[Rfam]
RNA sequence: GGCAAUCGAAUAGCUGAUUUUCAUAUAAUCGCAGGAAUAAGGUCUGCAAGUUUCUACCGGUUUACCGUAAAUAAACCGACUAUGAAAGAAAGCUCGACAAAG
Numbered sequence: 001g002g003c004a005a006u007c008g009a010a011u012a013g014c015u016g017a018u019u020u021u022c023a024u025a026u027a028a029u030c031g032c033a034g035g036a037a038u039a040a041g042g043u044c045u046g047c048a049a050g051u052u053u054c055u056a057c058c059g060g061u062u063u064a065c066c067g068u069a070a071a072u073a074a075a076c077c078g079a080c081u082a083u084g085a086a087a088g089a090a091a092g093c094u095c096g097a098c099a100a101a102g
Base pairs, nucleotide, nucleotide: 018088019087020086021085022084023083024082025081029049031047032046033045034044035043058078059077060076061075062074063073064072

A member of the RNA family "Purine riboswitch aptamer" from Lentibacillus halodurans, 102 nucleotides long. Lineage of the source: Bacteria > Bacillati > Bacillota > Bacilli > Lentibacillus.